[Rfam]
RNA: glmS glucosamine-6-phosphate activated ribozyme aptamer
RNA sequence: AAAGCAAGAAAAGCGCCAGAACUUGUCGAAGCAUGACGUAUUGACGAAGGGCAAAGGAUCAGGGACGGGAAAGCUGAUCUGAGCGAUAAACUUCAGCAUUGCGAAUCAUGUGGCCGACAAGUUGACGAGGUGGGGGUGUUCGAAAUAUUCGGCGGGGACCUUCCCGGCUUUCAUCGGAGCCGACAAUCGGAAAACAAAACGUUCAGGGCAACCGGACGUACAAAAAUCCGAUACGAUGUUGA
Numbered sequence: 001a002a003a004g005c006a007a008g009a010a011a012a013g014c015g016c017c018a019g020a021a022c023u024u025g026u027c028g029a030a031g032c033a034u035g036a037c038g039u040a041u042u043g044a045c046g047a048a049g050g051g052c053a054a055a056g057g058a059u060c061a062g063g064g065a066c067g068g069g070a071a072a073g074c075u076g077a078u079c080u081g082a083g084c085g086a087u088a089a090a091c092u093u094c095a096g097c098a099u100u101g102c103g104a105a106u107c108a109u110g111u112g113g114c115c116g117a118c119a120a121g122u123u124g125a126c127g128a129g130g131u132g133g134g135g136g137u138g139u140u141c142g143a144a145a146u147a148u149u150c151g152g153c154g155g156g157g158a159c160c161u162u163c164c165c166g167g168c169u170u171u172c173a174u175c176g177g178a179g180c181c182g183a184c185a186a187u188c189g190g191a192a193a194a195c196a197a198a199a200c201g202u203u204c205a206g207g208g209c210a211a212c213c214g215g216a217c218g219u220a221c222a223a224a225a226a227u228c229c230g231a232u233a234c235g236a237u238g239u240u241g242a
Stems, first nucleotide, its partner, number of pairs: 020123008028114001132164005140152004165182006186232006200218005206213002